[Rfam]
About this RNA:
This 213-nucleotide RNA from Clostridium sp. Maddingley MBC34-26 belongs to the Rfam family "T-box leader". The match comes from Rfam's covariance-model search (130 bits). Rfam describes the family as follows. Uncharged tRNA acts as the effector for transcription antitermination of genes in the T-box leader family. The family's RNA type in Rfam is cis-regulatory leader.
RNA sequence: AUAUUAGCGAUGAUUAGGAGUAUUAAUAAUAAUUAUAUCUUUCAGAGAGCUGUUGGUUGCUGCAAAACAGUGUUAUUUUAUUAUGAACUUGCCUAUGAGCUUACUUGUAAAAGCAAGUACGGUAAACCCGUUAAAAUAUUGAGUGAGAAGAAUUAAUUUUUUUAUUCUUCUAAUUAAGAGUGGUACCACGGAAAUUAUGCUUUCGUCUCUUUG
Numbered sequence: 001a002u003a004u005u006a007g008c009g010a011u012g013a014u015u016a017g018g019a020g021u022a023u024u025a026a027u028a029a030u031a032a033u034u035a036u037a038u039c040u041u042u043c044a045g046a047g048a049g050c051u052g053u054u055g056g057u058u059g060c061u062g063c064a065a066a067a068c069a070g071u072g073u074u075a076u077u078u079u080a081u082u083a084u085g086a087a088c089u090u091g092c093c094u095a096u097g098a099g100c101u102u103a104c105u106u107g108u109a110a111a112a113g114c115a116a117g118u119a120c121g122g123u124a125a126a127c128c129c130g131u132u133a134a135a136a137u138a139u140u141g142a143g144u145g146a147g148a149a150g151a152a153u154u155a156a157u158u159u160u161u162u163u164a165u166u167c168u169u170c171u172a173a174u175u176a177a178g179a180g181u182g183g184u185a186c187c188a189c190g191g192a193a194a195u196u197a198u199g200c201u202u203u204c205g206u207c208u209c210u211u212u213g
Stems, first nucleotide, its partner, number of pairs: 007100002015095004026084006040072001049071006104117005120130003146171007177210004188206005